[Rfam]
RNA sequence: CAUCGGCAGUCGAUGCCGAGUUCGGAUCAAGGCCCGUCCCCCGCCAACAUCCGGACAUAUGCGGCAGCCUCAUCCCCCUCUCCGGGCUGCCGCAGUUUUUUGAGUACCGCCGCCGUGGUUCCCUCCGCCACGGCGGCAUUUU
Numbered sequence: 001c002a003u004c005g006g007c008a009g010u011c012g013a014u015g016c017c018g019a020g021u022u023c024g025g026a027u028c029a030a031g032g033c034c035c036g037u038c039c040c041c042c043g044c045c046a047a048c049a050u051c052c053g054g055a056c057a058u059a060u061g062c063g064g065c066a067g068c069c070u071c072a073u074c075c076c077c078c079u080c081u082c083c084g085g086g087c088u089g090c091c092g093c094a095g096u097u098u099u100u101u102g103a104g105u106a107c108c109g110c111c112g113c114c115g116u117g118g119u120u121c122c123c124u125c126c127g128c129c130a131c132g133g134c135g136g137c138a139u140u141u142u
Stems, first nucleotide, its partner, number of pairs: 021055007031045003060094010110136010

Alphaproteobacterial sRNA ar7: a 142-nucleotide sequence from Mesorhizobium sp. NBSH29. A reference for the family is del Val et al. (2012), "A survey of sRNA families in alpha-proteobacteria", RNA Biol. The organism belongs to Mesorhizobium, within Bacteria. The family's RNA type in Rfam is small RNA.